The record is a 273-nucleotide RNA from Pyrococcus abyssi, which matches "HgcG RNA (Pab40)" in Rfam. It is one of the family's seed sequences. Gene Ontology term of the family: RNA processing. Rfam's curators write: The HgcG ncRNA gene was identified computationally in AT-rich hyperthermophiles. The genes were named hgcA through hgcG ('high GC'). HgcG is of unknown function. hgcG is significantly similar to a region of the Archaeoglobus fulgidus genome.

RNA sequence: UUCAUUUUUGCUUCUUCCAUAGUCACUAUUAUAAAACUUCGGGUCUUAUUCUCAUAUGCCCCCGCAAGCGAGGGCCUGGUCGAUUAGUGAGACCAGGUGCGACGCGGGGGCUACAGCCCGGCCUCAGCGAGGUCCCCUCGGUAGGUGCCUUCCGCGUCACGGAGCGCCGUGACCGGGGGUAACCCUGGCCGGGCACAGGCCCGUCUGGGUUAGCCCGCCUGAUCAUGCCGUUGGCUUAGAUGAAGGCGGGUGUUACGGGCGGGCUACAGAUUC
Numbered sequence: 001u002u003c004a005u006u007u008u009u010g011c012u013u014c015u016u017c018c019a020u021a022g023u024c025a026c027u028a029u030u031a032u033a034a035a036a037c038u039u040c041g042g043g044u045c046u047u048a049u050u051c052u053c054a055u056a057u058g059c060c061c062c063c064g065c066a067a068g069c070g071a072g073g074g075c076c077u078g079g080u081c082g083a084u085u086a087g088u089g090a091g092a093c094c095a096g097g098u099g100c101g102a103c104g105c106g107g108g109g110g111c112u113a114c115a116g117c118c119c120g121g122c123c124u125c126a127g128c129g130a131g132g133u134c135c136c137c138u139c140g141g142u143a144g145g146u147g148c149c150u151u152c153c154g155c156g157u158c159a160c161g162g163a164g165c166g167c168c169g170u171g172a173c174c175g176g177g178g179g180u181a182a183c184c185c186u187g188g189c190c191g192g193g194c195a196c197a198g199g200c201c202c203g204u205c206u207g208g209g210u211u212a213g214c215c216c217g218c219c220u221g222a223u224c225a226u227g228c229c230g231u232u233g234g235c236u237u238a239g240a241u242g243a244a245g246g247c248g249g250g251u252g253u254u255a256c257g258g259g260c261g262g263g264c265u266a267c268a269g270a271u272u273c
Stems, first nucleotide, its partner, number of pairs: 058111008075097007116194008128140005152176002156173007198265010214250007227235003
A reference for the family is Klein et al. (2002), "Noncoding RNA genes identified in AT-rich hyperthermophiles", Proc Natl Acad Sci U S A. The organism belongs to Pyrococcus abyssi, within Archaea.